This 101-nucleotide RNA from Cohnella thailandensis belongs to the Rfam family "Purine riboswitch aptamer".
Lineage of the source: Bacteria > Bacillati > Bacillota > Paenibacillaceae > Cohnella.
The family's consensus secondary structure is taken from published work.
On this family, see Mandal et al., Cell 2003: "Riboswitches Control Fundamental Biochemical Pathways in Bacillus subtilis and Other Bacteria".
Its family is annotated with purine nucleobase biosynthetic process in the Gene Ontology.
RNA sequence: UGGAACGGAAUCGAAGUUUUUCGUAUAAUCCCGGGAAUGGGCUCGGGAGUUUCUACGGGGUCACCGCAAAUGAUCCGGCUACGGAAAGCGCAAUAGGAUCA
Numbered sequence: 001u002g003g004a005a006c007g008g009a010a011u012c013g014a015a016g017u018u019u020u021u022c023g024u025a026u027a028a029u030c031c032c033g034g035g036a037a038u039g040g041g042c043u044c045g046g047g048a049g050u051u052u053c054u055a056c057g058g059g060g061u062c063a064c065c066g067c068a069a070a071u072g073a074u075c076c077g078g079c080u081a082c083g084g085a086a087a088g089c090g091c092a093a094u095a096g097g098a099u100c101a
Base pairs, nucleotide, nucleotide: 018087019086020085021084022083023082024081025080029048030047031046032045033044034043035042058076059075060074061073062072063071

Rfam 15.1 lists 4,097 matches to the family in 1,411 species. It scores 65 bits against the family's covariance model.